Description: c-di-GMP-I riboswitch aptamer: a 109-nucleotide RNA from Marivibrio halodurans.
RNA sequence: GACCCGAAAGGGCAAACCGCCGGAAACGGCGGGACGCAAAGUGACCGGCCUUAGGCCGGGCGCCCCGAAAAGAGGGGGAGGGCCCGGCGAUGGCGGCGGCACUGCCGAA
Number, nucleotide and partner (000 for none) at each position: 001g000002a000003c000004c000005c000006g000007a000008a000009a000010g000011g000012g037013c036014a000015a000016a000017c032018c031019g030020c029021c028022g027023g000024a000025a000026a000027c022028g021029g020030c019031g018032g017033g000034a000035c000036g013037c012038a000039a000040a103041g102042u101043g100044a000045c099046c098047g097048g094049c093050c092051u000052u000053a000054g000055g088056c087057c086058g085059g084060g083061c082062g000063c000064c000065c000066c000067g000068a000069a000070a000071a000072g000073a000074g000075g000076g000077g000078g000079a000080g000081g000082g061083c060084c059085c058086g057087g056088c055089g000090a000091u000092g050093g049094c048095g000096g000097c047098g046099g045100c043101a042102c041103u040104g000105c000106c000107g000108a000109a000

Its Rfam clan is "c-di-GMP_I riboswitch clan".